Glycine riboswitch aptamer: a 138-nucleotide RNA sequence from Paraburkholderia caffeinitolerans.
Taxonomically the source falls in Paraburkholderia (Bacteria, Pseudomonadati, Betaproteobacteria, Burkholderiaceae).
RNA sequence: GUCCGCAACUCUGGAGAGCGGCAGUAGAACGACGGCGGAUCAUCCCGCAGCGUUCAGGCUGCCCACCGAAGGGGCGCGCGCCGUCAAGCAUCAUUAGCACGGCGCAAUCUCUCAGGUAUCGAGGACAGAGGGGCCAUG
Numbered sequence: 001g002u003c004c005g006c007a008a009c010u011c012u013g014g015a016g017a018g019c020g021g022c023a024g025u026a027g028a029a030c031g032a033c034g035g036c037g038g039a040u041c042a043u044c045c046c047g048c049a050g051c052g053u054u055c056a057g058g059c060u061g062c063c064c065a066c067c068g069a070a071g072g073g074g075c076g077c078g079c080g081c082c083g084u085c086a087a088g089c090a091u092c093a094u095u096a097g098c099a100c101g102g103c104g105c106a107a108u109c110u111c112u113c114a115g116g117u118a119u120c121g122a123g124g125a126c127a128g129a130g131g132g133g134c135c136a137u138g
Base pairs, nucleotide, nucleotide: 006133009130010129011128012127013126020063021062022061023060024059025058065117066116067115068113069112072111073110074109078105079104080103081102082101083100084099